[Rfam]
RNA sequence: AUGACGUGUGCGGGAGAGCCCGGUGCACACAGCCGGGCGCCGAAGGAGCAAGCCUCCCCGCCAAUCUCUCAGGCACCCCCACCGCUCACGUCCG
Numbered sequence: 001a002u003g004a005c006g007u008g009u010g011c012g013g014g015a016g017a018g019c020c021c022g023g024u025g026c027a028c029a030c031a032g033c034c035g036g037g038c039g040c041c042g043a044a045g046g047a048g049c050a051a052g053c054c055u056c057c058c059c060g061c062c063a064a065u066c067u068c069u070c071a072g073g074c075a076c077c078c079c080c081a082c083c084g085c086u087c088a089c090g091u092c093c094g
Stems, first nucleotide, its partner, number of pairs: 006089003010085004019037004039074003042070002046068003052061002

Rfam assigns this 94-nucleotide sequence from Microbacterium hydrocarbonoxydans to the family "Glycine riboswitch aptamer". The pairing is the family consensus, mapped onto this sequence. It scores 66 bits against the family's covariance model. NCBI's taxonomy places the organism under Bacteria, Actinomycetota, Actinomycetes, Micrococcales, Microbacterium.